[Rfam]
RNA: mir-316 microRNA precursor family
Organism: Drosophila mojavensis
RNA sequence: AAGUUCUAGUCGAUUUGUCUUUUUCCGCUUACUGACGUUUUAUUGAACAACGGCAGGGAAGGGAAAAAGGCGUAUUUACUAUGAAUU
Numbered sequence: 001a002a003g004u005u006c007u008a009g010u011c012g013a014u015u016u017g018u019c020u021u022u023u024u025c026c027g028c029u030u031a032c033u034g035a036c037g038u039u040u041u042a043u044u045g046a047a048c049a050a051c052g053g054c055a056g057g058g059a060a061g062g063g064a065a066a067a068a069g070g071c072g073u074a075u076u077u078a079c080u081a082u083g084a085a086u087u
Stems, first nucleotide, its partner, number of pairs: 008080003012076002017071001019069007028061003032056003036052004